About this RNA: Rfam assigns this 71-nucleotide sequence from Anoxybacillus flavithermus to the family "skipping-rope RNA".
RNA sequence: AGCUUUCAGAGGAUGGAACAGGCAGCCAUCGCCCUUGUUGGAGAUGCGGGAGUGCCACCCCGCCUAAAGCU
Numbered sequence: 001a002g003c004u005u006u007c008a009g010a011g012g013a014u015g016g017a018a019c020a021g022g023c024a025g026c027c028a029u030c031g032c033c034c035u036u037g038u039u040g041g042a043g044a045u046g047c048g049g050g051a052g053u054g055c056c057a058c059c060c061c062g063c064c065u066a067a068a069g070c071u
Stems, first nucleotide, its partner, number of pairs: 001071006009064001012030005021056004032041001046063005
Pairs were carried over by alignment from the consensus structure, which is taken from published work.